Rfam assigns this 123-nucleotide sequence from Ensifer meliloti to the family "Alphaproteobacterial ar14". The family's RNA type in Rfam is small RNA. The family has 118 seed sequences and 784 matches in Rfam 15.1. On this family, see del Val et al., RNA Biol 2012: "A survey of sRNA families in alpha-proteobacteria". Smr14C2 was renamed NfeR1 (Nodule Formation Efficiency RNA) highly expressed in salt stress and during the symbiotic interaction on legume roots. Rfam links the family to the GO term biological process involved in symbiotic interaction. The sequence is in the family's curated seed alignment.
[Rfam]
RNA sequence: AGAAUUCGAAGCAGCGCACUCCUCCUCCCAUCGCCGCUUCGAUGGAUUGGCAACACUCCUCCUCCCGGUUGCCAAUCGCCUUUAUGACGCCCGCCGGUCCUCCUCCCCCGACGGGCGUCAUUU
Numbered sequence: 001a002g003a004a005u006u007c008g009a010a011g012c013a014g015c016g017c018a019c020u021c022c023u024c025c026u027c028c029c030a031u032c033g034c035c036g037c038u039u040c041g042a043u044g045g046a047u048u049g050g051c052a053a054c055a056c057u058c059c060u061c062c063u064c065c066c067g068g069u070u071g072c073c074a075a076u077c078g079c080c081u082u083u084a085u086g087a088c089g090c091c092c093g094c095c096g097g098u099c100c101u102c103c104u105c106c107c108c109c110g111a112c113g114g115g116c117g118u119c120a121u122u123u
Stems, first nucleotide, its partner, number of pairs: 007041003011037002014034003045077010087118007095110003
Dot-bracket structure: ......(((.((.(((...............))).)).)))...((((((((((.............)))))))))).........(((((((.(((..........))).))))))).....